A member of the RNA family "mir-4679 microRNA precursor family" from Homo sapiens, 75 nucleotides long. The family's consensus secondary structure was predicted with RNAalifold. The organism belongs to Homo, within Eukaryota. Rfam 15.1 lists 10 matches to the family in 5 species. Gene Ontology terms of the family: RISC complex and miRNA-mediated post-transcriptional gene silencing.
RNA sequence: GUCUUUUUUCUGUGAUAGAGAUUCUUUGCUUUGUUAGAAACAAAAAGCAAAGAAUCUCUAUCACAGAAAAAAGAU
Numbered sequence: 001g002u003c004u005u006u007u008u009u010c011u012g013u014g015a016u017a018g019a020g021a022u023u024c025u026u027u028g029c030u031u032u033g034u035u036a037g038a039a040a041c042a043a044a045a046a047g048c049a050a051a052g053a054a055u056c057u058c059u060a061u062c063a064c065a066g067a068a069a070a071a072a073g074a075u
Base pairs, nucleotide, nucleotide: 002074003073004072005071006070007069008068009067010066011065012064013063014062015061016060017059018058019057020056021055022054023053024052025051026050027049028048029047030046031045032042033041